[Rfam]
RNA sequence: UUGGAAAAUUUUAAUACUUCAAUUUGUAUACUUGGAGAACUUGAAAACUUCAACUUGCAUACUUGGAAGAUUUGAAGACUUCAGCU
Numbered sequence: 001u002u003g004g005a006a007a008a009u010u011u012u013a014a015u016a017c018u019u020c021a022a023u024u025u026g027u028a029u030a031c032u033u034g035g036a037g038a039a040c041u042u043g044a045a046a047a048c049u050u051c052a053a054c055u056u057g058c059a060u061a062c063u064u065g066g067a068a069g070a071u072u073u074g075a076a077g078a079c080u081u082c083a084g085c086u
Base pairs, nucleotide, nucleotide: 001084002083003082004081005080009076010075011074013072014071018067019066020065021064025059026058027057028056032053033052034051035050036049037048
Rfam assigns this 86-nucleotide RNA sequence from Solanum commersonii to the family "MIR8024 microRNA precursor family". The family has 2 seed sequences and 661 matches in Rfam 15.1. The match comes from Rfam's covariance-model search (81 bits). Lineage of the source: Eukaryota > Embryophyta > eudicotyledons > Gunneridae > Solanum.